[Rfam]
Shown here is a 283-nucleotide part of an RNA from Pyrenochaeta sp. MPI-SDFR-AT-0127, a member of the family "Eukaryotic large subunit ribosomal RNA".
RNA sequence: GAGUCUAAUAUCUAUAUAAGUAUUUAGGUAUUAAGCCUAAGUGCGUAAUAAAAGUAAAUAGAGGUAGGAUCUCUUAAGGGUAUACUAUUAACUAAUCCUAAUAUCUUUAGAUAGAUUUAAGUAAGAGUAUAGCUAUUAGGACCUAAAAGAUAGUAAACUAUACUUAAAUAGGAUAAAGCUAGAGGAAACUCUAGUAGAGGCUUAUAGUAGUUCUAAUAUAUAAAUUAAUUAUUAAAUUUAGGUAUAGGGGUAAAAGACUAAUUAAACUAUCUAGUAGCUAGUU
Numbered sequence: 001g002a003g004u005c006u007a008a009u010a011u012c013u014a015u016a017u018a019a020g021u022a023u024u025u026a027g028g029u030a031u032u033a034a035g036c037c038u039a040a041g042u043g044c045g046u047a048a049u050a051a052a053a054g055u056a057a058a059u060a061g062a063g064g065u066a067g068g069a070u071c072u073c074u075u076a077a078g079g080g081u082a083u084a085c086u087a088u089u090a091a092c093u094a095a096u097c098c099u100a101a102u103a104u105c106u107u108u109a110g111a112u113a114g115a116u117u118u119a120a121g122u123a124a125g126a127g128u129a130u131a132g133c134u135a136u137u138a139g140g141a142c143c144u145a146a147a148a149g150a151u152a153g154u155a156a157a158c159u160a161u162a163c164u165u166a167a168a169u170a171g172g173a174u175a176a177a178g179c180u181a182g183a184g185g186a187a188a189c190u191c192u193a194g195u196a197g198a199g200g201c202u203u204a205u206a207g208u209a210g211u212u213c214u215a216a217u218a219u220a221u222a223a224a225u226u227a228a229u230u231a232u233u234a235a236a237u238u239u240a241g242g243u244a245u246a247g248g249g250g251u252a253a254a255a256g257a258c259u260a261a262u263u264a265a266a267c268u269a270u271c272u273a274g275u276a277g278c279u280a281g282u283u
Stems, first nucleotide, its partner, number of pairs: 005139006012132006020044003025039005048055002063089005071080002091122002093119003096115002102109002142281001149271006158247011169235001171203002174200001178195007207232004212228001215226002249259003
Dot-bracket structure: ....((((((.((((((..(((..(((((.....)))))..)))...((....)).......(((((...((......))....))))).(((((((....((....))....)).))).))....)))))).))))))..(......((((((...((((((((((((.((.(...(((((((....)))))))....).))...((((.(..((........)).)))))..).))))))))))).(((.....)))......)))))).........)..

Rfam links the family to the GO terms structural constituent of ribosome and ribosome.